[Rfam]
RNA: Selenocysteine insertion sequence 1
RNA sequence: UAUUAUUUAUGAUGGCAUGAUCCUAAACUCCUAACGGGAGGGAUUGUGCUUGAUUUUCAUAUGA
Numbered sequence: 001u002a003u004u005a006u007u008u009a010u011g012a013u014g015g016c017a018u019g020a021u022c023c024u025a026a027a028c029u030c031c032u033a034a035c036g037g038g039a040g041g042g043a044u045u046g047u048g049c050u051u052g053a054u055u056u057u058c059a060u061a062u063g064a
Base pairs, nucleotide, nucleotide: 001064004061005060014050015049016048017047018046019045020044021043022042023041029039030038031037